Rfam assigns this 133-nucleotide RNA sequence from Firmicutes bacterium CAG:475 to the family "Ribosomal protein L10 leader".
Rfam links the family to the GO term regulation of gene expression.
From the family's description: This family is a putative r-protein leader autoregulatory structure found in B. subtilis and other low-GC Gram-positive bacteria. It is located in the 5' untranslated regions of mRNAs encoding ribosomal proteins L10 and L12 (rplJ-rplL).
The base pairs follow the family's consensus structure, which was predicted with CMfinder.
A search with the family's covariance model found it, with a score of 67 bits.
The source organism's lineage runs through Bacteria, Bacillati and Bacillota.
RNA sequence: UUGUAUUAUAUAUGCGUUCCAAAGACAGCAAGUGGCGUGAGCCGUAAGUGAAAACGCUUGCCGAGGAUGAGCUGAAUACAAAAAGGUAUUAUUGCGUCAUUCUCUUUUGGAAUGACGCUUUUAAAUUUCGCGA
Number, nucleotide and partner (000 for none) at each position: 001u000002u000003g000004u000005a000006u000007u000008a000009u000010a000011u000012a000013u000014g000015c000016g000017u000018u000019c000020c000021a000022a000023a000024g000025a000026c000027a000028g061029c060030a059031a058032g057033u056034g043035g042036c041037g000038u000039g000040a000041g036042c035043c034044g000045u000046a000047a000048g000049u000050g000051a000052a000053a000054a000055c000056g033057c032058u031059u030060g029061c028062c000063g000064a000065g000066g000067a000068u000069g000070a000071g000072c000073u000074g000075a000076a000077u000078a000079c000080a000081a000082a000083a000084a000085g000086g000087u000088a000089u000090u000091a000092u000093u000094g118095c117096g116097u115098c114099a113100u112101u111102c110103u109104c000105u000106u000107u000108u000109g103110g102111a101112a100113u099114g098115a097116c096117g095118c094119u000120u000121u000122u000123a000124a000125a000126u000127u000128u000129c000130g000131c000132g000133a000